The family of this 83-nucleotide sequence from Enhydra lutris is "Small nucleolar RNA SNORD121A". The source organism's lineage runs through Eukaryota, Euteleostomi, Tetrapoda, Laurasiatheria and Enhydra lutris. On this family, see Yang et al., Nucleic Acids Res 2006: "snoSeeker: an advanced computational package for screening of guide and orphan snoRNA genes in the human genome". Its family is annotated with RNA processing and nucleolus in the Gene Ontology. The family's consensus secondary structure was predicted with WAR.
RNA sequence: GUUCAGAAAACAAUGAUGUGAUAAUUACCAAGCACAUAUCUGAUGUUGCCAUGUGGAAUUGAGCUACUCUGAGUUUUCUGGAC
Numbered sequence: 001g002u003u004c005a006g007a008a009a010a011c012a013a014u015g016a017u018g019u020g021a022u023a024a025u026u027a028c029c030a031a032g033c034a035c036a037u038a039u040c041u042g043a044u045g046u047u048g049c050c051a052u053g054u055g056g057a058a059u060u061g062a063g064c065u066a067c068u069c070u071g072a073g074u075u076u077u078c079u080g081g082a083c
Stems, first nucleotide, its partner, number of pairs: 001083006008076004